RNA sequence: AGUCCGAAAGCUCAAACCCACACACGUAUCGACACGGUUUCCUGGGUGCCCGCAAGGGUUGGGAACUGGGAUGCGUGGAGGCCUAAC
Number, nucleotide and partner (000 for none) at each position: 001a000002g000003u000004c000005c000006g000007a000008a000009a000010g000011c000012u000013c000014a000015a000016a000017c000018c000019c000020a000021c000022a000023c077024a076025c075026g074027u073028a072029u071030c070031g000032a000033c000034a000035c068036g067037g066038u065039u064040u063041c062042c061043u000044g000045g000046g000047u000048g059049c058050c057051c056052g000053c000054a000055a000056g051057g050058g049059u048060u000061g042062g041063g040064a039065a038066c037067u036068g035069g000070g030071a029072u028073g027074c026075g025076u024077g023078g000079a000080g000081g000082c000083c000084u000085a000086a000087c000
The family of this 87-nucleotide RNA from Pseudomonas sp. THAF187a is "t44 RNA". Taxonomically the source falls in Pseudomonas (Bacteria, Pseudomonadati, Pseudomonadales, Pseudomonadaceae). The family's RNA type in Rfam is small RNA. Rfam describes the family as follows. This family consists of a number of bacterial RNA genes of between 135 and 170 bases in length. The t44 gene has been identified in several species of enteric bacteria but homologs have also been identified in Pseudomonas and Coxiella species. The t44 gene is found between the map and rpsB genes in all species in the full alignment apart from Shigella flexneri. The family's consensus secondary structure was predicted with LocARNA.